[Rfam]
This 132-nucleotide RNA from Ramphastos sulfuratus belongs to the Rfam family "Small nucleolar RNA SNORA3/SNORA45 family".
RNA sequence: ACCGAGACUAGAGUCACAUCUUAACAUGUUUGAUUGUCUUGGUGUGCUAUCGUUCUCGGACAUGAAUGCCUGAUCUCUGUUCACUGGCUGGGAUGUUUUGUAUCUCAGCCAGCCACCGAGUCAGUAACACAG
Numbered sequence: 001a002c003c004g005a006g007a008c009u010a011g012a013g014u015c016a017c018a019u020c021u022u023a024a025c026a027u028g029u030u031u032g033a034u035u036g037u038c039u040u041g042g043u044g045u046g047c048u049a050u051c052g053u054u055c056u057c058g059g060a061c062a063u064g065a066a067u068g069c070c071u072g073a074u075c076u077c078u079g080u081u082c083a084c085u086g087g088c089u090g091g092g093a094u095g096u097u098u099u100g101u102a103u104c105u106c107a108g109c110c111a112g113c114c115a116c117c118g119a120g121u122c123a124g125u126a127a128c129a130c131a132g
Base pairs, nucleotide, nucleotide: 002059003058004057005056006055007053008052012048013047015046016045017044018043019042020041024037025036026035070124071123072122073121075120076119077118079116084112085111086110087109089107090106091105092104093103094102
Dot-bracket structure: .(((((((...((.((((((...(((........)))...))))))))...)).)))))..........((((.(((.(....((((.((((((.......)))))).))))...).)))))))........

Record summary: About the family: The members of this family belong to the H/ACA class of snoRNAs which are thought to guide the sites of modification of uridines to pseudouridines. This family includes mouse snoMBI-28 and human homologues ACA3 (SNORA3) and ACA3-2 (SNORA45). Both ACA3 and ACA3-2 share the same host gene. MBI-28, ACA3 and ACA3-2 are all predicted to guide the pseudouridylation of residues in 28S rRNA. The family's consensus secondary structure was predicted with RNAalifold. Its Rfam clan is "SNORA3 clan". Rfam classes the family as an H/ACA-box small nucleolar RNA.